[Rfam]
RNA sequence: GUUGAUCAGGUGAUGAAAUAUUUCGGAUGUAAACUCACAGACCUGUUCUGAAUGCGCAAAACCGUGUAGAGAUUUCCGUUGCCUUCCUUCUGAUGAU
Numbered sequence: 001g002u003u004g005a006u007c008a009g010g011u012g013a014u015g016a017a018a019u020a021u022u023u024c025g026g027a028u029g030u031a032a033a034c035u036c037a038c039a040g041a042c043c044u045g046u047u048c049u050g051a052a053u054g055c056g057c058a059a060a061a062c063c064g065u066g067u068a069g070a071g072a073u074u075u076c077c078g079u080u081g082c083c084u085u086c087c088u089u090c091u092g093a094u095g096a097u
Stems, first nucleotide, its partner, number of pairs: 003096001024078004